nhaA-I RNA: a 57-nucleotide sequence from Novosphingobium umbonatum. Rfam's curators write: Acidobacteria, Alphaproteobacteria, Betaproteobacteria and Gammaproteobacteria, Verrucomicrobia, cand. division NC10. Taxonomically the source falls in Novosphingobium (Bacteria, Pseudomonadati, Pseudomonadota, Alphaproteobacteria). By type it is a riboswitch. Pairs were carried over by alignment from the consensus structure, which is taken from published work.
RNA sequence: GGGUGCGUCAUUCGCUGGCGAAUGAGCAGGUUUGGUACAUCGGUCGGGCCGCCGGUG
Numbered sequence: 001g002g003g004u005g006c007g008u009c010a011u012u013c014g015c016u017g018g019c020g021a022a023u024g025a026g027c028a029g030g031u032u033u034g035g036u037a038c039a040u041c042g043g044u045c046g047g048g049c050c051g052c053c054g055g056u057g
Stems, first nucleotide, its partner, number of pairs: 005027002008025005038057007